[Rfam]
The family of this 88-nucleotide RNA sequence from Pseudomonas matsuisoli is "t44 RNA".
It is annotated as a small RNA.
NCBI's taxonomy places the organism under Bacteria, Pseudomonadati, Pseudomonadota, Pseudomonadaceae, Pseudomonas.
RNA sequence: CCCGUGAGGGCAUAAACCCACACACGUAUCGACACGGUCGCCUGGGUGCCCCAAGGGGGUUGGCGUUCGGGAUGCGUGGAGGCCUAAC
Dot-bracket structure: ......................((((((((....(((.((((.....(((((...))))).)))).))).))))))))..........